[Rfam]
RNA sequence: UAGUUUUGUAAAAGAAAGGGAAGCUAUGAGCUGGAACUCAUGGCUUCCCCCGUAGAACCGUUUAAGACGGUGACAUUGUUAAUGGUAAAAAAUA
Numbered sequence: 001u002a003g004u005u006u007u008g009u010a011a012a013a014g015a016a017a018g019g020g021a022a023g024c025u026a027u028g029a030g031c032u033g034g035a036a037c038u039c040a041u042g043g044c045u046u047c048c049c050c051c052g053u054a055g056a057a058c059c060g061u062u063u064a065a066g067a068c069g070g071u072g073a074c075a076u077u078g079u080u081a082a083u084g085g086u087a088a089a090a091a092a093u094a
Base pairs, nucleotide, nucleotide: 025042026041027040028039029038030037057071058070059069060068061067062066
RNA: RNA anti-toxin A
Organism: Pediococcus acidilactici